[Rfam]
Rfam assigns this 466-nucleotide RNA sequence from Ceuthmochares aereus to the family "7SK RNA". From the family's description: 7SK was discovered as an abundant small nuclear RNA in the mid-70s but a possible function has only recently been suggested. Two independent studies have found that 7SK RNA binds the CDK9/cyclin T complex (known as elongation factor P-TEFb). P-TEFb activates transcription by phosphorylating the C-terminal domain of RNA polymerase II. This process is negatively regulated by the 7SK RNP. The secondary structure of 7SK RNA shown here was proposed by Wasserman and Steitz on the basis of chemical modification and enzymatic cleavage experiments. This family contains a number of annotated pseudogenes and 7SK derived repeats. The threshold is artificially high to minimise the pseudogene count. The match comes from Rfam's covariance-model search (195 bits). Lineage of the source: Eukaryota > Tetrapoda > Archosauria > Coelurosauria > Ceuthmochares. The literature on the family includes a 2002 paper in Curr Biol by Blencowe, "Transcription: surprising role for an elusive small nuclear RNA". It is annotated as a non-coding RNA gene.
RNA sequence: GGAUGUGAGCGUGAUCUGGCUGUUCAUCUACCACCCCAUUGAUUGCCAGUGUUGAUUUGGGUGAUCAUAGAAUCAUAGAAUAACCAGGUUGGAAGAGACCUACCGGAUCAUCGAGUCCAACCAUUCCCACCACUCUCUAACCCAUGUCCCUCAGCACCUCAUCCACCUGUAGCUUAAACACCUCCAGGGAAGGUGAGUCAACCACCUCCCUGGGCAGAUCUGACUGGCUAGGAGGGUGUCCCUUUCCUCCCUCACUGUUCCACGUGUGUCCCCCACAAAAGAGGACGACCUUCCCCAGUAGAGGUGAACUGUUCUGUUGGUCCAAGGCUAUACGGUAGUUGUUCUCCCCUGCUAGAACCUCCAAACAAGCUCAAAGUCCAUUUGUAGGAGAACAUAUGGUAGUCAAGCUUCCAAGUCUGCAGACACAUCCAAGUGAGGCUCUUCAUGGGGCAGUCUGCCAUUCUCA
Numbered sequence: 001g002g003a004u005g006u007g008a009g010c011g012u013g014a015u016c017u018g019g020c021u022g023u024u025c026a027u028c029u030a031c032c033a034c035c036c037c038a039u040u041g042a043u044u045g046c047c048a049g050u051g052u053u054g055a056u057u058u059g060g061g062u063g064a065u066c067a068u069a070g071a072a073u074c075a076u077a078g079a080a081u082a083a084c085c086a087g088g089u090u091g092g093a094a095g096a097g098a099c100c101u102a103c104c105g106g107a108u109c110a111u112c113g114a115g116u117c118c119a120a121c122c123a124u125u126c127c128c129a130c131c132a133c134u135c136u137c138u139a140a141c142c143c144a145u146g147u148c149c150c151u152c153a154g155c156a157c158c159u160c161a162u163c164c165a166c167c168u169g170u171a172g173c174u175u176a177a178a179c180a181c182c183u184c185c186a187g188g189g190a191a192g193g194u195g196a197g198u199c200a201a202c203c204a205c206c207u208c209c210c211u212g213g214g215c216a217g218a219u220c221u222g223a224c225u226g227g228c229u230a231g232g233a234g235g236g237u238g239u240c241c242c243u244u245u246c247c248u249c250c251c252u253c254a255c256u257g258u259u260c261c262a263c264g265u266g267u268g269u270c271c272c273c274c275a276c277a278a279a280a281g282a283g284g285a286c287g288a289c290c291u292u293c294c295c296c297a298g299u300a301g302a303g304g305u306g307a308a309c310u311g312u313u314c315u316g317u318u319g320g321u322c323c324a325a326g327g328c329u330a331u332a333c334g335g336u337a338g339u340u341g342u343u344c345u346c347c348c349c350u351g352c353u354a355g356a357a358c359c360u361c362c363a364a365a366c367a368a369g370c371u372c373a374a375a376g377u378c379c380a381u382u383u384g385u386a387g388g389a390g391a392a393c394a395u396a397u398g399g400u401a402g403u404c405a406a407g408c409u410u411c412c413a414a415g416u417c418u419g420c421a422g423a424c425a426c427a428u429c430c431a432a433g434u435g436a437g438g439c440u441c442u443u444c445a446u447g448g449g450g451c452a453g454u455c456u457g458c459c460a461u462u463c464u465c466a
Base pairs, nucleotide, nucleotide: 001261002260003259005255006254007253008252009251011249013246014245018243019242025238026237027236028235029234031232032231034227035226037222038221041220042219043218044217045215046214047213269307270306271304272303274301276298283294284293285292338408339407340406344402345401347399348398350396351395359390360389361388362387365385366384367383368382369381433464435461437459438458439457441453442452444450